[Rfam]
RNA: Group I catalytic intron
RNA sequence: AUACCUGCCUUUCAACCGUUGGGCGCUUUCAUCCUCUGACGGAGGCUCUGUCUGCAGCUAGGUCCCUGGGCACGCUCGUAGCUAGUCGCAUGCCUGCGGCGACACCUCCAAAUUGCGGGAACACCCUAAAGCUCAUGCGUACCGCCUUCGUUGGGGAAACCUGACUUAGGCACCGGUGGCGAACCGGGUAUGGUAACAAUCGCUGAGAUGCGGCUGAAAAGUCCAAUGGGCAACCACGCAGCGAAGCCCGUAACGGUCACGCCGACGGGUAGCGUUCAACGACUAAACGGAGGUGCGGGUCGGGUUUACUGCCCUUCCCGUAAGAUAUAGUCUUCAUAGCGGGGAAACCCGUGG
Numbered sequence: 001a002u003a004c005c006u007g008c009c010u011u012u013c014a015a016c017c018g019u020u021g022g023g024c025g026c027u028u029u030c031a032u033c034c035u036c037u038g039a040c041g042g043a044g045g046c047u048c049u050g051u052c053u054g055c056a057g058c059u060a061g062g063u064c065c066c067u068g069g070g071c072a073c074g075c076u077c078g079u080a081g082c083u084a085g086u087c088g089c090a091u092g093c094c095u096g097c098g099g100c101g102a103c104a105c106c107u108c109c110a111a112a113u114u115g116c117g118g119g120a121a122c123a124c125c126c127u128a129a130a131g132c133u134c135a136u137g138c139g140u141a142c143c144g145c146c147u148u149c150g151u152u153g154g155g156g157a158a159a160c161c162u163g164a165c166u167u168a169g170g171c172a173c174c175g176g177u178g179g180c181g182a183a184c185c186g187g188g189u190a191u192g193g194u195a196a197c198a199a200u201c202g203c204u205g206a207g208a209u210g211c212g213g214c215u216g217a218a219a220a221g222u223c224c225a226a227u228g229g230g231c232a233a234c235c236a237c238g239c240a241g242c243g244a245a246g247c248c249c250g251u252a253a254c255g256g257u258c259a260c261g262c263c264g265a266c267g268g269g270u271a272g273c274g275u276u277c278a279a280c281g282a283c284u285a286a287a288c289g290g291a292g293g294u295g296c297g298g299g300u301c302g303g304g305u306u307u308a309c310u311g312c313c314c315u316u317c318c319c320g321u322a323a324g325a326u327a328u329a330g331u332c333u334u335c336a337u338a339g340c341g342g343g344g345a346a347a348c349c350c351g352u353g354g
Base pairs, nucleotide, nucleotide: 006025007024008023009022010021013018030057103295104294105293106292107291109289114240115239116238117237118235119234124230125229126228241275242274246270247269248268249267250266251265279333281332282331283330284329285328297319298318299317302314303313304312305311339352340351341350342349343348